[Rfam]
RNA sequence: GGGUGUUCUGAAGACCUGCCGACUAGGCUACAAACGAAGAACUUGGAUUCUAUCACAUGCCUAGGGGAAAGUCCCCGGACGAUAGACAGAAAGUGUCCUGCUUCAUUGCAGUGCACGACUAGAAUUCGACGAUCGAGCUAAGAUACUUCUCGGAGUUGAGCUCGAAGCAUUCUAGUCGUGAUUGUCAAUGUAACAGUAAUGCAGGUGUUAAAUUGACACCAACAGAACGGGGCUCAUUCUCAGAAUGCA
Numbered sequence: 001g002g003g004u005g006u007u008c009u010g011a012a013g014a015c016c017u018g019c020c021g022a023c024u025a026g027g028c029u030a031c032a033a034a035c036g037a038a039g040a041a042c043u044u045g046g047a048u049u050c051u052a053u054c055a056c057a058u059g060c061c062u063a064g065g066g067g068a069a070a071g072u073c074c075c076c077g078g079a080c081g082a083u084a085g086a087c088a089g090a091a092a093g094u095g096u097c098c099u100g101c102u103u104c105a106u107u108g109c110a111g112u113g114c115a116c117g118a119c120u121a122g123a124a125u126u127c128g129a130c131g132a133u134c135g136a137g138c139u140a141a142g143a144u145a146c147u148u149c150u151c152g153g154a155g156u157u158g159a160g161c162u163c164g165a166a167g168c169a170u171u172c173u174a175g176u177c178g179u180g181a182u183u184g185u186c187a188a189u190g191u192a193a194c195a196g197u198a199a200u201g202c203a204g205g206u207g208u209u210a211a212a213u214u215g216a217c218a219c220c221a222a223c224a225g226a227a228c229g230g231g232g233c234u235c236a237u238u239c240u241c242a243g244a245a246u247g248c249a
Stems, first nucleotide, its partner, number of pairs: 003248009014206006023064006038051004070234002073232004085097004098111004115179011127167001135163004145156004208218001
RNA: RNase MRP
Organism: Clupea harengus